Shown here is a 66-nucleotide RNA from Clupea harengus, a member of the family "mir-29 microRNA precursor family".

RNA sequence: GGAAGCUGGUCUCAUAUGGUGGCUUAGAGUUGUUACGCAUCUAGCACCAUUUGAAAUCAGUGUUCC
Numbered sequence: 001g002g003a004a005g006c007u008g009g010u011c012u013c014a015u016a017u018g019g020u021g022g023c024u025u026a027g028a029g030u031u032g033u034u035a036c037g038c039a040u041c042u043a044g045c046a047c048c049a050u051u052u053g054a055a056a057u058c059a060g061u062g063u064u065c066c
Base pairs, nucleotide, nucleotide: 001066002065003064004063005061006060007059008058009057010056012054013053014052016050017049018048019047020046021045025043026042027041028040
A search with the family's covariance model found it, with a score of 63 bits. The literature on the family includes a 2001 paper in Cell by Ambros, "microRNAs: tiny regulators with great potential". This family represents the microRNA (miRNA) precursors mir-29. The source organism's lineage runs through Eukaryota, Gnathostomata, Otomorpha, Clupeinae and Clupea.